Notes:
A member of the RNA family "Selenocysteine transfer RNA" from Cimex lectularius, 86 nucleotides long. The base pairs follow the family's consensus structure, which is taken from published work. The organism belongs to Cimex, within Eukaryota.
[Rfam]
RNA sequence: GCCCAGUUGAACCUCGGUGGUCCGGGGUGUAGGCUUCAAACCUGCAGCUGGUUAGCGCCAGAGUGGUUCAAUUCCACCUGCUGGGC
Numbered sequence: 001g002c003c004c005a006g007u008u009g010a011a012c013c014u015c016g017g018u019g020g021u022c023c024g025g026g027g028u029g030u031a032g033g034c035u036u037c038a039a040a041c042c043u044g045c046a047g048c049u050g051g052u053u054a055g056c057g058c059c060a061g062a063g064u065g066g067u068u069c070a071a072u073u074c075c076a077c078c079u080g081c082u083g084g085g086c
Stems, first nucleotide, its partner, number of pairs: 001086007009078001012027006028046006048061005063077004
Dot-bracket structure: (((((((.(..((((((....))))))((((((.......)))))).(((((....))))).((((.......))))).)))))))